[Rfam]
RNA sequence: CUGUAACCGGGUUCAAGUAAUCCAGGAUAGGCUUUUUGUAUCUGUCUUGGCCUAUGCUUGAUUACUUGCACUCGGGGGCAG
Numbered sequence: 001c002u003g004u005a006a007c008c009g010g011g012u013u014c015a016a017g018u019a020a021u022c023c024a025g026g027a028u029a030g031g032c033u034u035u036u037u038g039u040a041u042c043u044g045u046c047u048u049g050g051c052c053u054a055u056g057c058u059u060g061a062u063u064a065c066u067u068g069c070a071c072u073c074g075g076g077g078g079c080a081g
Base pairs, nucleotide, nucleotide: 002080003079004078007075008074009073010072011071012070014068015067016066017065018064019063020062021061022060024058025057027055028054029053030052031051032050033049

Rfam assigns this 81-nucleotide RNA from Collichthys lucidus to the family "mir-26 microRNA precursor family". A reference for the family is Lagos-Quintana et al. (2001), "Identification of novel genes coding for small expressed RNAs", Science. It scores 80 bits against the family's covariance model. The source organism's lineage runs through Eukaryota, Eumetazoa, Bilateria, Craniata and Collichthys.